Rfam assigns this 184-nucleotide RNA from Phyllostomus discolor to the family "Small Cajal body specific RNA 16". Rfam describes the family as follows. scaRNAs are a specific class of small nuclear RNAs which localise to the Cajal bodies and guide the modification of RNA polymerase II transcribed spliceosomal RNAs U1, U2, U4, U5 and U12. ACA47 belongs to the H/ACA box class of guide RNAs as it has the predicted hairpin-hinge-hairpin-tail structure, the conserved H/ACA-box motifs and is found associated with GAR1. ACA47 is predicted to guide the pseudouridylation of residue U5 of the U1 spliceosomal snRNA. The family has 37 seed sequences and 790 matches in Rfam 15.1.

[Rfam]
RNA sequence: ACAGUCUGGGGAAAGGCUCCUGUGUUGCUGAACCUACUCAGCGGUGAGUGCGGCCCAAACCAGGCAGCCCAACCUGACCCACAGUAAAUCCCCAAGAGAGUGUUGCCUGGGUUUUGAAUUCGCAGUUACAGGUGUGAACAUUAUAGCAGCAGUUUGAUGAUCAUGUAUGAUACUGCAAACAAGA
Numbered sequence: 001a002c003a004g005u006c007u008g009g010g011g012a013a014a015g016g017c018u019c020c021u022g023u024g025u026u027g028c029u030g031a032a033c034c035u036a037c038u039c040a041g042c043g044g045u046g047a048g049u050g051c052g053g054c055c056c057a058a059a060c061c062a063g064g065c066a067g068c069c070c071a072a073c074c075u076g077a078c079c080c081a082c083a084g085u086a087a088a089u090c091c092c093c094a095a096g097a098g099a100g101u102g103u104u105g106c107c108u109g110g111g112u113u114u115u116g117a118a119u120u121c122g123c124a125g126u127u128a129c130a131g132g133u134g135u136g137a138a139c140a141u142u143a144u145a146g147c148a149g150c151a152g153u154u155u156g157a158u159g160a161u162c163a164u165g166u167a168u169g170a171u172a173c174u175g176c177a178a179a180c181a182a183g184a
Stems, first nucleotide, its partner, number of pairs: 004078003009074002015069004019064004024060002027054004032049002091111003097104002119179002122176005129169002135163003139159004145154003

Notes:
It scores 157 bits against the family's covariance model.